[Rfam]
RNA: Small nucleolar RNA Z39
Organism: Castor canadensis
RNA sequence: UUGCAUAUGAUAAAGCAAAUCAGUAUGAAUAAAGUCAUGAUACUGUAUACAGUUUCUAAAAUAUGUA
Numbered sequence: 001u002u003g004c005a006u007a008u009g010a011u012a013a014a015g016c017a018a019a020u021c022a023g024u025a026u027g028a029a030u031a032a033a034g035u036c037a038u039g040a041u042a043c044u045g046u047a048u049a050c051a052g053u054u055u056c057u058a059a060a061a062u063a064u065g066u067a
Stems, first nucleotide, its partner, number of pairs: 002067004012055003021045006